[Rfam]
RNA sequence: GCAUAGUGAUGAUGAACUAUAAAUAUUCCGAUUUUUAAAGUGAUGAUCAACACCUCCUACUCAUUCUGA
Numbered sequence: 001g002c003a004u005a006g007u008g009a010u011g012a013u014g015a016a017c018u019a020u021a022a023a024u025a026u027u028c029c030g031a032u033u034u035u036u037a038a039a040g041u042g043a044u045g046a047u048c049a050a051c052a053c054c055u056c057c058u059a060c061u062c063a064u065u066c067u068g069a
Stems, first nucleotide, its partner, number of pairs: 006064004027046002
Shown here is a 69-nucleotide sequence from Daucus carota, a member of the family "Small nucleolar RNA Z105".
Lineage of the source: Eukaryota > Tracheophyta > Apiaceae > Daucus sect. Daucus > Daucus carota.
It is annotated as a C/D-box small nucleolar RNA.
The family's consensus secondary structure was predicted with CMfinder.
A reference for the family is Chen et al. (2003), "The high diversity of snoRNAs in plants: identification and comparative study of 120 snoRNA genes from Oryza sativa", Nucleic Acids Res.
Gene Ontology terms of the family: nucleolus and RNA processing.